[Rfam]
RNA: mir-395 microRNA precursor family
Organism: Medicago truncatula
RNA sequence: GUAAUCCCUAGAGUUCCCUUAAACAUUUCAUUAAGGACUCAAUUUCUUCUCUUCAACCUUGUUGAAGCGUUUGGGGGAACUCCCGGAAUCAC
Numbered sequence: 001g002u003a004a005u006c007c008c009u010a011g012a013g014u015u016c017c018c019u020u021a022a023a024c025a026u027u028u029c030a031u032u033a034a035g036g037a038c039u040c041a042a043u044u045u046c047u048u049c050u051c052u053u054c055a056a057c058c059u060u061g062u063u064g065a066a067g068c069g070u071u072u073g074g075g076g077g078a079a080c081u082c083c084c085g086g087a088a089u090c091a092c
Stems, first nucleotide, its partner, number of pairs: 005088001007086002011082014026067005032061004